[Rfam]
RNA sequence: AACCACACUAUCAAUAAAUGGAUUCACAUGUGAGAUGACGUAGUUGUUACACCUAGGAUGAGAAUAUGGCAUCCUAUUAAUUUCGUGUGAUGGCUGGUAAUAAGAUGCCACGUCCUCGUCAUAAGUGGAACAGCCACGCCAUAUCACGGGUGAAUCAAUUCAUUGAUAGUGUGAUU
Numbered sequence: 001a002a003c004c005a006c007a008c009u010a011u012c013a014a015u016a017a018a019u020g021g022a023u024u025c026a027c028a029u030g031u032g033a034g035a036u037g038a039c040g041u042a043g044u045u046g047u048u049a050c051a052c053c054u055a056g057g058a059u060g061a062g063a064a065u066a067u068g069g070c071a072u073c074c075u076a077u078u079a080a081u082u083u084c085g086u087g088u089g090a091u092g093g094c095u096g097g098u099a100a101u102a103a104g105a106u107g108c109c110a111c112g113u114c115c116u117c118g119u120c121a122u123a124a125g126u127g128g129a130a131c132a133g134c135c136a137c138g139c140c141a142u143a144u145c146a147c148g149g150g151u152g153a154a155u156c157a158a159u160u161c162a163u164u165g166a167u168a169g170u171g172u173g174a175u176u
Stems, first nucleotide, its partner, number of pairs: 001176002004173004009168007017160003021156007030147004035142003039138001041136001043134006051126002054123002057120002064113002069108005075102005

Rfam assigns this 176-nucleotide RNA from Oryza sativa to the family "MIR807 microRNA precursor family".
A reference for the family is Luo et al. (2006), "Rice embryogenic calli express a unique set of microRNAs, suggesting regulatory roles of microRNAs in plant post-embryogenic development", FEBS Lett.
Its family is annotated with miRNA-mediated post-transcriptional gene silencing and RISC complex in the Gene Ontology.
Pairs were carried over by alignment from the consensus structure, which was predicted with WAR.
Taxonomically the source falls in Oryza sativa (Eukaryota, Spermatophyta, Magnoliopsida, Oryzinae).
The match comes from Rfam's covariance-model search (150 bits).
The family has 30 seed sequences and 1,514 matches in Rfam 15.1.